The family of this 135-nucleotide RNA from Aquibium oceanicum is "Alphaproteobacterial sRNA ar35". A reference for the family is del Val et al. (2012), "A survey of sRNA families in alpha-proteobacteria", RNA Biol. A search with the family's covariance model found it, with a score of 58 bits. The family has 13 seed sequences and 266 matches in Rfam 15.1. The organism belongs to Aquibium, within Bacteria. The base pairs follow the family's consensus structure. The family's RNA type in Rfam is small RNA.
RNA sequence: AUCGCGACGGCAGGAGCUCGGCCGAAAACCUGCAGGCGGCAUAAGUUUCAGGCGCCUCCGGUCCGACCACGGAUGUACUGGCGCGACCGUGGAGGCGCUGAAGAGAAGGUCGGGGAAACCCCCGGCCUUUUUUCA
Numbered sequence: 001a002u003c004g005c006g007a008c009g010g011c012a013g014g015a016g017c018u019c020g021g022c023c024g025a026a027a028a029c030c031u032g033c034a035g036g037c038g039g040c041a042u043a044a045g046u047u048u049c050a051g052g053c054g055c056c057u058c059c060g061g062u063c064c065g066a067c068c069a070c071g072g073a074u075g076u077a078c079u080g081g082c083g084c085g086a087c088c089g090u091g092g093a094g095g096c097g098c099u100g101a102a103g104a105g106a107a108g109g110u111c112g113g114g115g116a117a118a119c120c121c122c123c124g125g126c127c128u129u130u131u132u133u134c135a
Stems, first nucleotide, its partner, number of pairs: 004046002007042001009040001016037003020033001051099007060088004064083002067081003100134002103132011115120001